Shown here is a 63-nucleotide RNA sequence from Sarcophilus harrisii, a member of the family "Small nucleolar RNA SNORD102". The family's consensus secondary structure was predicted with PFOLD. The source organism's lineage runs through Eukaryota, Opisthokonta, Metazoa, Tetrapoda and Sarcophilus. For this family Rfam cites "Identification of 13 novel human modification guide RNAs" (Vitali et al., Nucleic Acids Res, 2003).

RNA sequence: AGCUUGAUGAUGAUUGCUUUUAUAAUGAGUAAAAUGAAAACAACUUCACCGGCUCUGAAAGCU
Number, nucleotide and partner (000 for none) at each position: 001a063002g062003c061004u060005u059006g000007a000008u000009g000010a000011u000012g000013a000014u000015u000016g000017c000018u000019u000020u000021u000022a000023u000024a000025a000026u000027g000028a000029g000030u000031a000032a000033a000034a000035u000036g000037a000038a000039a000040a000041c000042a000043a000044c000045u000046u000047c000048a000049c000050c000051g000052g000053c000054u000055c000056u000057g000058a000059a005060a004061g003062c002063u001